[Rfam]
RNA: Small nucleolar RNA snoR145
RNA sequence: CAGCGAAGGUCCCAGCGGAGGGGUAUGGACUCUUUAAUUGAGGCCUCUCUAACACAUAAAACAUUAAACCUUCGUAGAUUCAUGAGCCGAAUCGUAGGAUGCCCGGAAUUUCUGUUUCUGGAACAUCUUGAACCCUCGGCUAAAUUUCA
Numbered sequence: 001c002a003g004c005g006a007a008g009g010u011c012c013c014a015g016c017g018g019a020g021g022g023g024u025a026u027g028g029a030c031u032c033u034u035u036a037a038u039u040g041a042g043g044c045c046u047c048u049c050u051a052a053c054a055c056a057u058a059a060a061a062c063a064u065u066a067a068a069c070c071u072u073c074g075u076a077g078a079u080u081c082a083u084g085a086g087c088c089g090a091a092u093c094g095u096a097g098g099a100u101g102c103c104c105g106g107a108a109u110u111u112c113u114g115u116u117u118c119u120g121g122a123a124c125a126u127c128u129u130g131a132a133c134c135c136u137c138g139g140c141u142a143a144a145u146u147u148c149a
Stems, first nucleotide, its partner, number of pairs: 003075007011020001013018001021049003030042003086140005098127002101124001103121006